[Rfam]
RNA sequence: CUGGAUGACUGCAAAUAUGCGUGGUCAUCUCUCACAUGCUGUCAAAGCAUAUUGAUACUGGAGAAUAUCAUGGCUCUGUCUACAGAACAGAAAGCUCAGAUCAUCAAAGAAUUCGGUGCCAGCGAA
Numbered sequence: 001c002u003g004g005a006u007g008a009c010u011g012c013a014a015a016u017a018u019g020c021g022u023g024g025u026c027a028u029c030u031c032u033c034a035c036a037u038g039c040u041g042u043c044a045a046a047g048c049a050u051a052u053u054g055a056u057a058c059u060g061g062a063g064a065a066u067a068u069c070a071u072g073g074c075u076c077u078g079u080c081u082a083c084a085g086a087a088c089a090g091a092a093a094g095c096u097c098a099g100a101u102c103a104u105c106a107a108a109g110a111a112u113u114c115g116g117u118g119c120c121a122g123c124g125a126a
Stems, first nucleotide, its partner, number of pairs: 007026006060077004

Rfam assigns this 126-nucleotide RNA from Zymobacter palmae to the family "Ribosomal S15 leader". Rfam's curators write: The E. coli Ribosomal S15 gene 5' UTR can form two alternative structures. One that is a series of three hairpins, The other includes a pseudoknot. This structure causes translational regulation of the S15 protein. The alignment of this family contains only the final two hairpins which are conserved in other species, and also includes the complete region that forms the alternate structures. Pairs were carried over by alignment from the consensus structure, which is taken from published work. Gene Ontology term of the family: regulation of translation, ncRNA-mediated. Lineage of the source: Bacteria > Pseudomonadati > Pseudomonadota > Halomonadaceae > Zymobacter. The family is grouped with related families in Rfam's "Ribosomal Protein S15 Leader clan". It is annotated as a cis-regulatory leader.